[Rfam]
RNA: T-box leader
Nucleotides: 263
Base pairs, nucleotide, nucleotide: 007102008101015097016096017095018094026086027085028084029083030082031081039074040073041072050071051070052069053068054067055066104132105131107130108129109128134145135144136143191225192224193223194222195221196220197219230260231259232258233257241256242255243254244253245252
Number, partner (000 for none) and nucleotide at each position: 001000u002000a003000a004000a005000a006000a007102u008101c009000g010000a011000u012000g013000a014000g015097u016096a017095a018094g019000a020000a021000u022000a023000g024000u025000a026086g027085a028084u029083a030082u031081a032000a033000u034000c035000g036000a037000a038000u039074c040073g041072u042000c043000a044000c045000a046000g047000a048000g049000a050071g051070c052069u053068g054067g055066a056000a057000a058000a059000g060000g061000u062000g063000a064000a065000a066055u067054c068053c069052a070051g071050u072041a073040c074039g075000a076000u077000a078000g079000a080000u081031u082030a083029u084028a085027u086026u087000g088000a089000a090000u091000g092000g093000a094018c095017u096016u097015a098000c099000g100000a101008g102007a103000g104132g105131u106000a107130c108129g109128u110000u111000g112000a113000a114000a115000c116000g117000u118000u119000u120000a121000g122000g123000a124000g125000u126000a127000u128109g129108c130107g131105a132104c133000c134145c135144g136143g137000a138000u139000u140000c141000c142000a143136c144135c145134g146000u147000u148000a149000a150000a151000a152000g153000g154000a155000u156000a157000a158000g159000g160000u161000a162000u163000c164000a165000g166000a167000c168000u169000u170000u171000g172000u173000u174000c175000u176000u177000g178000u179000a180000c181000c182000u183000g184000a185000a186000g187000a188000g189000u190000g191225a192224g193223u194222u195221u196220u197219u198000u199000u200000u201000g202000c203000u204000u205000g206000a207000a208000u209000u210000u211000a212000a213000a214000g215000c216000a217000u218000a219197a220196a221195a222194a223193a224192c225191u226000a227000a228000c229000a230260g231259a232258g233257g234000u235000g236000g237000c238000a239000c240000c241256g242255u243254g244253g245252u246000a247000a248000a249000a250000a251000u252245a253244u254243c255242a256241c257233c258232c259231u260230c261000u262000a263000c